[Rfam]
RNA sequence: UACUUUUGCCGCUCGAUUACCAAAGCGGUCGUCGGUACAUAAAAAUCAUUUAAAUAAUAUUGGCAUG
Numbered sequence: 001u002a003c004u005u006u007u008g009c010c011g012c013u014c015g016a017u018u019a020c021c022a023a024a025g026c027g028g029u030c031g032u033c034g035g036u037a038c039a040u041a042a043a044a045a046u047c048a049u050u051u052a053a054a055u056a057a058u059a060u061u062g063g064c065a066u067g
Stems, first nucleotide, its partner, number of pairs: 014034004019029001
Record summary: The family of this 67-nucleotide RNA from Altibacter lentus is "S15-Flavobacteria ribosomal protein leader". The family's consensus secondary structure is taken from published work. Rfam classes the family as a cis-regulatory leader. For this family Rfam cites "Discovery of 20 novel ribosomal leader candidates in bacteria and archaea" (Eckert and Weinberg, BMC Microbiol, 2020).